[Rfam]
RNA sequence: CUGCACGUAGCCUCCCGGGCUCAUCUGAUUUUUUCCACAUGAAGUUAGCAGCCCCAAAGCUCGUGCUAUACUUUUCGCCGCUAAGUGUUGCAGCAUAGCCCUCUGUACCUUUUAUCCAUGGCUUAACUGUGUCAAAUCAACGGCAACAUAC
Numbered sequence: 001c002u003g004c005a006c007g008u009a010g011c012c013u014c015c016c017g018g019g020c021u022c023a024u025c026u027g028a029u030u031u032u033u034u035c036c037a038c039a040u041g042a043a044g045u046u047a048g049c050a051g052c053c054c055c056a057a058a059g060c061u062c063g064u065g066c067u068a069u070a071c072u073u074u075u076c077g078c079c080g081c082u083a084a085g086u087g088u089u090g091c092a093g094c095a096u097a098g099c100c101c102u103c104u105g106u107a108c109c110u111u112u113u114a115u116c117c118a119u120g121g122c123u124u125a126a127c128u129g130u131g132u133c134a135a136a137u138c139a140a141c142g143g144c145a146a147c148a149u150a151c
Base pairs, nucleotide, nucleotide: 003066004065005064006063007062010060011059017054018053019052020051021050022048025044026043077144078143079142080141082139086134087133089131090130091129092128093127098122099121100120